[Rfam]
Bacterial RNase P class A: a 566-nucleotide sequence from Pelomicrobium methylotrophicum. About the family: Ribonuclease P (RNase P) is a ubiquitous endoribonuclease, found in archaea, bacteria and eukarya as well as chloroplasts and mitochondria. The source organism's lineage runs through Bacteria, Pseudomonadati, Pseudomonadota, Hydrogenophilia and Pelomicrobium. Rfam links the family to the GO terms dimeric ribonuclease P complex, tRNA processing and ribonuclease P activity. The match comes from Rfam's covariance-model search (232 bits).
RNA sequence: GAAGCUGGCCAGGCAGCCGCUGCCCGAGGAGUUUUCUCCUCGGGGAGAGGAAAGUCCGGGCUCCACAGGGCAGGAUGCCGGCUAACGGCCGGAGGCCGCGAGGCCAUGGAAAGUGUCGCGAAUGCGAUACUUCAGCGCAGACUCGCCUGCGGGCCGGUGUCUGGGCUACAGGGCUGCAGACACGGAGUAGCGCGACCAGGGUCGGAACUUGAGGCGUCAAAAGACGUCUUGAGGGCUGGCAGGCAACGUCAAAGCUGGGGUGCAACAGAGAGUAGACCGCCGAGGCGUGAGCCGACCCACGCUGGCAAGGGUGAAACGGUGCGCGUGACCGAAAGGUGCGCGGCGGCUCGCAGGUGCGGGCUGCGGGUAAGAGCCCACCGCGUCCGUGGUGACACGGACGGCACGGCAAACCCCAUCCGGAGCAAGGCCAAAUAGGGGGACGAGAGCGUGGCCCGCGCUGUUCCCGGGUAGGCCGCUGGAGCGGCGGGGCAACCCGUCGCCUAGAGGAAUGGCUGCCAAGGGGCUUAGCCCCCUCACAGAACCCGGCUUAUCGGCCAGCUUCCCUU
Numbered sequence: 001g002a003a004g005c006u007g008g009c010c011a012g013g014c015a016g017c018c019g020c021u022g023c024c025c026g027a028g029g030a031g032u033u034u035u036c037u038c039c040u041c042g043g044g045g046a047g048a049g050g051a052a053a054g055u056c057c058g059g060g061c062u063c064c065a066c067a068g069g070g071c072a073g074g075a076u077g078c079c080g081g082c083u084a085a086c087g088g089c090c091g092g093a094g095g096c097c098g099c100g101a102g103g104c105c106a107u108g109g110a111a112a113g114u115g116u117c118g119c120g121a122a123u124g125c126g127a128u129a130c131u132u133c134a135g136c137g138c139a140g141a142c143u144c145g146c147c148u149g150c151g152g153g154c155c156g157g158u159g160u161c162u163g164g165g166c167u168a169c170a171g172g173g174c175u176g177c178a179g180a181c182a183c184g185g186a187g188u189a190g191c192g193c194g195a196c197c198a199g200g201g202u203c204g205g206a207a208c209u210u211g212a213g214g215c216g217u218c219a220a221a222a223g224a225c226g227u228c229u230u231g232a233g234g235g236c237u238g239g240c241a242g243g244c245a246a247c248g249u250c251a252a253a254g255c256u257g258g259g260g261u262g263c264a265a266c267a268g269a270g271a272g273u274a275g276a277c278c279g280c281c282g283a284g285g286c287g288u289g290a291g292c293c294g295a296c297c298c299a300c301g302c303u304g305g306c307a308a309g310g311g312u313g314a315a316a317c318g319g320u321g322c323g324c325g326u327g328a329c330c331g332a333a334a335g336g337u338g339c340g341c342g343g344c345g346g347c348u349c350g351c352a353g354g355u356g357c358g359g360g361c362u363g364c365g366g367g368u369a370a371g372a373g374c375c376c377a378c379c380g381c382g383u384c385c386g387u388g389g390u391g392a393c394a395c396g397g398a399c400g401g402c403a404c405g406g407c408a409a410a411c412c413c414c415a416u417c418c419g420g421a422g423c424a425a426g427g428c429c430a431a432a433u434a435g436g437g438g439g440a441c442g443a444g445a446g447c448g449u450g451g452c453c454c455g456c457g458c459u460g461u462u463c464c465c466g467g468g469u470a471g472g473c474c475g476c477u478g479g480a481g482c483g484g485c486g487g488g489g490c491a492a493c494c495c496g497u498c499g500c501c502u503a504g505a506g507g508a509a510u511g512g513c514u515g516c517c518a519a520g521g522g523g524c525u526u527a528g529c530c531c532c533c534u535c536a537c538a539g540a541a542c543c544c545g546g547c548u549u550a551u552c553g554g555c556c557a558g559c560u561u562c563c564c565u566u
Base pairs, nucleotide, nucleotide: 001562002561003560004559005558006557007556008555009554010553011551012517013516014515015514016513017512018511020047021046023044024043025042026041027040028039029038030037052549053548054547056546057545058544059543060542061422062421063420064419068454069453070452071451073418074417075416076415077414078092079091080090081089082088093107094105095104096103097102108413109412113411114410115407116406117405130310131309133305135302136301137300140297318379319378320377321376380402381400382399383398384397385396386395387394388393426474427473428472429471436465437464438463439462440461441460445459446458447457448456449455481500482499483498484497485496486495487494488493